[Rfam]
MIR1878 microRNA precursor family: a 98-nucleotide sequence from Paspalum vaginatum. The organism belongs to Paspalum, within Eukaryota.
RNA sequence: ACUGUUGCAAACUUAGUCUGGACACUAUAAAAGAAAGUCUGCAUAUAAAAAAGUGCUCACUGUAAAUUUGUAGUGUUCAGAUUGAGUUAUUAUGGUCG
Numbered sequence: 001a002c003u004g005u006u007g008c009a010a011a012c013u014u015a016g017u018c019u020g021g022a023c024a025c026u027a028u029a030a031a032a033g034a035a036a037g038u039c040u041g042c043a044u045a046u047a048a049a050a051a052a053g054u055g056c057u058c059a060c061u062g063u064a065a066a067u068u069u070g071u072a073g074u075g076u077u078c079a080g081a082u083u084g085a086g087u088u089a090u091u092a093u094g095g096u097c098g
Stems, first nucleotide, its partner, number of pairs: 001096004010088022038059001042055003046051001